Mammalian CPEB3 ribozyme: a 77-nucleotide RNA from Crocodylus porosus.
RNA sequence: GGUUGCAAGUUUGAGGCCAUAGCAGAAAGGCUCACAGUGCAGUCCUGUCAGAUUUCAACAAAUCUGCAAUUUCUGCU
Numbered sequence: 001g002g003u004u005g006c007a008a009g010u011u012u013g014a015g016g017c018c019a020u021a022g023c024a025g026a027a028a029g030g031c032u033c034a035c036a037g038u039g040c041a042g043u044c045c046u047g048u049c050a051g052a053u054u055u056c057a058a059c060a061a062a063u064c065u066g067c068a069a070u071u072u073c074u075g076c077u
Base pairs, nucleotide, nucleotide: 013045015044016043017042021077022076023075024074025073026072027071030038049066050065051064052063053062054061055060
Dot-bracket structure: ............[.[[[...(((((((..(.......)...]]]]...(((((((....)))))))....)))))))